[Rfam]
RNA sequence: UAGACAUGGGGAGUGCAGAGGGGAUUCCCCUCUGUCGUAUUCAGGAGGGUGCUCAGGCUGCUUAACAGCCGUCGAAGGGAAC
Numbered sequence: 001u002a003g004a005c006a007u008g009g010g011g012a013g014u015g016c017a018g019a020g021g022g023g024a025u026u027c028c029c030c031u032c033u034g035u036c037g038u039a040u041u042c043a044g045g046a047g048g049g050u051g052c053u054c055a056g057g058c059u060g061c062u063u064a065a066c067a068g069c070c071g072u073c074g075a076a077g078g079g080a081a082c
Stems, first nucleotide, its partner, number of pairs: 015035008056070005
Dot-bracket structure: ..............((((((((.....))))))))....................(((((.....)))))............

Rfam assigns this 82-nucleotide sequence from Alkaliphilus peptidifermentans to the family "Clostridiales-2 RNA". The organism belongs to Alkaliphilus peptidifermentans, within Bacteria. The match comes from Rfam's covariance-model search (87 bits).